[Rfam]
RNA: Small nucleolar RNA SNORA49
Organism: Galemys pyrenaicus
RNA sequence: AUCCCUUAGCCUUACUCUGGGGACUUUUGCUGUAAAGUACCCUGGCAUUGCCUGAGGGUACAGGAAAAGCCCUUAUCCCUCCCCAGGGAGUCUGUCUUCUUUUGGGGUCUGCAAACGGGGCUGACAGC
Number, nucleotide and partner (000 for none) at each position: 001a000002u000003c058004c057005c056006u055007u054008a053009g052010c000011c050012u000013u000014a000015c000016u000017c045018u044019g043020g042021g041022g040023a038024c037025u036026u035027u034028u000029g000030c000031u000032g000033u000034a027035a026036a025037g024038u023039a000040c022041c021042c020043u019044g018045g017046c000047a000048u000049u000050g011051c000052c009053u008054g007055a006056g005057g004058g003059u000060a000061c000062a000063g000064g000065a000066a000067a000068a122069g121070c120071c000072c118073u117074u000075a000076u000077c000078c000079c000080u000081c107082c106083c105084c104085a103086g102087g000088g099089a098090g000091u000092c000093u000094g000095u000096c000097u000098u089099c088100u000101u000102u086103u085104g084105g083106g082107g081108u000109c000110u000111g000112c000113a000114a000115a000116c000117g073118g072119g000120g070121c069122u068123g000124a000125c000126a000127g000128c000